[Rfam]
RNA: Archaeal small subunit ribosomal RNA, nucleotides 505 to 863
RNA sequence: GGCCUAAAGCGUCCGUAGCCGGCCGAGCGGGUCCGUCGGGAAAUCCACGUGCUCAACGCGUGGGCGUCCGGCGGAAACCACUCGGCUUGGGGCCGGAAGACUCGAGGGGUACGUCUGGGGUAGGAGUGAAAUCCCGUAAUCCUGGACGGACCGCCGAUGGCGAAAGCACCUCGAGAAGACGGACCCGACGGUGAGGGACGAAAGCCAGGGUCUCGAACCGGAUUAGAUACCCGGGUAGUCCUGGCCGUAAACGAUGUUCGCUAGGUGUGGCGUCGACUACGAGUCGGCGCUGUGCCGCAGGGAAGCCGCUAAGCGAACCGCCUGGGAAGUACGUCCGCAAGGAUGAAACUUAAAGGAAU
Numbered sequence: 001g002g003c004c005u006a007a008a009g010c011g012u013c014c015g016u017a018g019c020c021g022g023c024c025g026a027g028c029g030g031g032u033c034c035g036u037c038g039g040g041a042a043a044u045c046c047a048c049g050u051g052c053u054c055a056a057c058g059c060g061u062g063g064g065c066g067u068c069c070g071g072c073g074g075a076a077a078c079c080a081c082u083c084g085g086c087u088u089g090g091g092g093c094c095g096g097a098a099g100a101c102u103c104g105a106g107g108g109g110u111a112c113g114u115c116u117g118g119g120g121u122a123g124g125a126g127u128g129a130a131a132u133c134c135c136g137u138a139a140u141c142c143u144g145g146a147c148g149g150a151c152c153g154c155c156g157a158u159g160g161c162g163a164a165a166g167c168a169c170c171u172c173g174a175g176a177a178g179a180c181g182g183a184c185c186c187g188a189c190g191g192u193g194a195g196g197g198a199c200g201a202a203a204g205c206c207a208g209g210g211u212c213u214c215g216a217a218c219c220g221g222a223u224u225a226g227a228u229a230c231c232c233g234g235g236u237a238g239u240c241c242u243g244g245c246c247g248u249a250a251a252c253g254a255u256g257u258u259c260g261c262u263a264g265g266u267g268u269g270g271c272g273u274c275g276a277c278u279a280c281g282a283g284u285c286g287g288c289g290c291u292g293u294g295c296c297g298c299a300g301g302g303a304a305g306c307c308g309c310u311a312a313g314c315g316a317a318c319c320g321c322c323u324g325g326g327a328a329g330u331a332c333g334u335c336c337g338c339a340a341g342g343a344u345g346a347a348a349c350u351u352a353a354a355g356g357a358a359u
Stems, first nucleotide, its partner, number of pairs: 001322003009319001011199004016193001018192003022086006030079002032075009045063007090186003093182003101175007108152002112148008123134003160167002204245006214238001218234004256318006264296014300307002324351003333344004